The family of this 351-nucleotide RNA from Dethiobacter alkaliphilus is "Bacterial RNase P class A". The match comes from Rfam's covariance-model search (326 bits).
RNA sequence: AAAGCAGACCGGAUAGUCGCGGGGAUUUCGUAUCCUCGAGGAAAGUCCGAGCUCCACAGGGCAGGGUGCUGGGUAACGCCCAGUGAGGGUAACCUUAAGGAAAGUGCCACAGAGAACAGACCGCCUCCAUUGGAGGUAAGGGUGAAACGGUGCGGUAAGAGCGCACCAGCGAGCCAGGUGACUGGCCGGCUAGGUAAACCCCACCUGGAGCAAGACCAAAUAGGGGAGAGUUGACGUUGCCCGCCGAUCUCCCGGGUUAGGUCGCUAGAGGUGUCAGGUAACUGGCAUCCCAGAGAGAUGACUAUCGCCCCGCAAGGGGAACAGAACUCGGCUUACAGGUCUGCUUUGUAG
Numbered sequence: 001a002a003a004g005c006a007g008a009c010c011g012g013a014u015a016g017u018c019g020c021g022g023g024g025a026u027u028u029c030g031u032a033u034c035c036u037c038g039a040g041g042a043a044a045g046u047c048c049g050a051g052c053u054c055c056a057c058a059g060g061g062c063a064g065g066g067u068g069c070u071g072g073g074u075a076a077c078g079c080c081c082a083g084u085g086a087g088g089g090u091a092a093c094c095u096u097a098a099g100g101a102a103a104g105u106g107c108c109a110c111a112g113a114g115a116a117c118a119g120a121c122c123g124c125c126u127c128c129a130u131u132g133g134a135g136g137u138a139a140g141g142g143u144g145a146a147a148c149g150g151u152g153c154g155g156u157a158a159g160a161g162c163g164c165a166c167c168a169g170c171g172a173g174c175c176a177g178g179u180g181a182c183u184g185g186c187c188g189g190c191u192a193g194g195u196a197a198a199c200c201c202c203a204c205c206u207g208g209a210g211c212a213a214g215a216c217c218a219a220a221u222a223g224g225g226g227a228g229a230g231u232u233g234a235c236g237u238u239g240c241c242c243g244c245c246g247a248u249c250u251c252c253c254g255g256g257u258u259a260g261g262u263c264g265c266u267a268g269a270g271g272u273g274u275c276a277g278g279u280a281a282c283u284g285g286c287a288u289c290c291c292a293g294a295g296a297g298a299u300g301a302c303u304a305u306c307g308c309c310c311c312g313c314a315a316g317g318g319g320a321a322c323a324g325a326a327c328u329c330g331g332c333u334u335a336c337a338g339g340u341c342u343g344c345u346u347u348g349u350a351g
Stems, first nucleotide, its partner, number of pairs: 001347010011336001012306007020038007043334003047331005052210004059241002062239001064206005069083005084098001085096004099201002104199002106195003121141002123137006149167006169190001170188002173186005214263004224253006235246002238243001270289008